[Rfam]
RNA sequence: UAGCUUUGAGGUGGUAAACUUCGUUGCAACCACGCGCCCUAGUGGCUAAAAGAGAUGCAGGAGCCGCGACGCCUGCCGAGGUCA
Numbered sequence: 001u002a003g004c005u006u007u008g009a010g011g012u013g014g015u016a017a018a019c020u021u022c023g024u025u026g027c028a029a030c031c032a033c034g035c036g037c038c039c040u041a042g043u044g045g046c047u048a049a050a051a052g053a054g055a056u057g058c059a060g061g062a063g064c065c066g067c068g069a070c071g072c073c074u075g076c077c078g079a080g081g082u083c084a
Base pairs, nucleotide, nucleotide: 001084003082004081005080006079007078008077011033012032013031014030015029023070024069025068026067027066035052036046037045038044057076058075059074060073061072
Record summary:
Rfam assigns this 84-nucleotide sequence to the family "skipping-rope RNA". Rfam's curators put it in the seed alignment. Rfam classes the family as a small RNA.